[Rfam]
Rfam assigns this 140-nucleotide RNA from Pseudomonas sp. 21C1 to the family "Pseudomonas sRNA P11". Pairs were carried over by alignment from the consensus structure, which was predicted with RNAalifold. The literature on the family includes a 2006 paper in Nucleic Acids Res by Livny et al., "Identification of 17 Pseudomonas aeruginosa sRNAs and prediction of sRNA-encoding genes in 10 diverse pathogens using the bioinformatic tool sRNAPredict2". From the family's description: This small RNA (sRNA) was computationally identified in the genome of the opportunistic pathogen Pseudomonas aeruginosa and its expression verified by northern blot analysis. P11 is located between a putative threonine protein kinase and putative nitrate reductase and appears to be conserved in several Pseudomonas species.

RNA sequence: GGCCUGGCGACUUGGCACACAGUCUGCAUUAACCAGCUGACAAGGUAUUACACAGUGCGGUGCUCAACGAUGAGCCUCGCACGCCCCGAGAGAACGGGGCCUGGACAAAGGCGUCCUCGCUAGGUGACUAGCGGGACGCC
Numbered sequence: 001g002g003c004c005u006g007g008c009g010a011c012u013u014g015g016c017a018c019a020c021a022g023u024c025u026g027c028a029u030u031a032a033c034c035a036g037c038u039g040a041c042a043a044g045g046u047a048u049u050a051c052a053c054a055g056u057g058c059g060g061u062g063c064u065c066a067a068c069g070a071u072g073a074g075c076c077u078c079g080c081a082c083g084c085c086c087c088g089a090g091a092g093a094a095c096g097g098g099g100c101c102u103g104g105a106c107a108a109a110g111g112c113g114u115c116c117u118c119g120c121u122a123g124g125u126g127a128c129u130a131g132c133g134g135g136a137c138g139c140c
Stems, first nucleotide, its partner, number of pairs: 012108003015027003055082005062075001064073002084099005110140007118133006